[Rfam]
RNA sequence: ACAAUGAUACUUUUGUAGCCGCAAGGCGCAACCGGCGGAGUACCCGGCGGAGGUGAGAUUCCUAUGG
Numbered sequence: 001a002c003a004a005u006g007a008u009a010c011u012u013u014u015g016u017a018g019c020c021g022c023a024a025g026g027c028g029c030a031a032c033c034g035g036c037g038g039a040g041u042a043c044c045c046g047g048c049g050g051a052g053g054u055g056a057g058a059u060u061c062c063u064a065u066g067g
Base pairs, nucleotide, nucleotide: 012064013031014030015029016028032050033049034048036046037045038044051063052062053061